[Rfam]
RNA sequence: CGGUUAUAAAAAGCGCCAGAACCGUGGAGACUUUUCACGGUUGACGAGGUGGGAGGUUAAUCGAAAAUUCGGCGGGUACCUCCCCGCUUUCUUCCAAGCGCAGUAUGUCUGAAAACUUCCGGGUAACCGGAUCGACAGCCAGAUAUAUGGGAAGUGU
Numbered sequence: 001c002g003g004u005u006a007u008a009a010a011a012a013g014c015g016c017c018a019g020a021a022c023c024g025u026g027g028a029g030a031c032u033u034u035u036c037a038c039g040g041u042u043g044a045c046g047a048g049g050u051g052g053g054a055g056g057u058u059a060a061u062c063g064a065a066a067a068u069u070c071g072g073c074g075g076g077u078a079c080c081u082c083c084c085c086g087c088u089u090u091c092u093u094c095c096a097a098g099c100g101c102a103g104u105a106u107g108u109c110u111g112a113a114a115a116c117u118u119c120c121g122g123g124u125a126a127c128c129g130g131a132u133c134g135a136c137a138g139c140c141a142g143a144u145a146u147a148u149g150g151g152a153a154g155u156g157u
Stems, first nucleotide, its partner, number of pairs: 020042008029033001052083005061072004086099004104147006118131005
Record summary:
glmS glucosamine-6-phosphate activated ribozyme aptamer: a 157-nucleotide RNA from Youxingia wuxianensis. Rfam links the family to the GO terms catalytic activity and regulation of gene expression. Taxonomically the source falls in Youxingia (Bacteria, Bacillati, Bacillota, Oscillospiraceae). Rfam's curators write: This entry contains a glucosamine-6-phosphate activated ribozyme that is found in the mRNA for GlmS. GlmS is an enzyme that uses fructose-6-phosphate and glutamine to generate glucosamine-6-phosphate.